The record is a 74-nucleotide sequence from Pichia californica, which matches "tRNA" in Rfam. Transfer RNA (tRNA) molecules are approximately 80 nucleotides in length. The organism belongs to Pichia, within Eukaryota.
RNA sequence: GUUUCUAUAGCUUAACCUGGUUAAAGCAAUAAAUUGAAGCUUUAUUGAUAAAAGUUCAAAUCUUUUUGGAAACA
Numbered sequence: 001g002u003u004u005c006u007a008u009a010g011c012u013u014a015a016c017c018u019g020g021u022u023a024a025a026g027c028a029a030u031a032a033a034u035u036g037a038a039g040c041u042u043u044a045u046u047g048a049u050a051a052a053a054g055u056u057c058a059a060a061u062c063u064u065u066u067u068g069g070a071a072a073c074a
Stems, first nucleotide, its partner, number of pairs: 001073007010027004029045005050066005
The family's RNA type in Rfam is transfer RNA.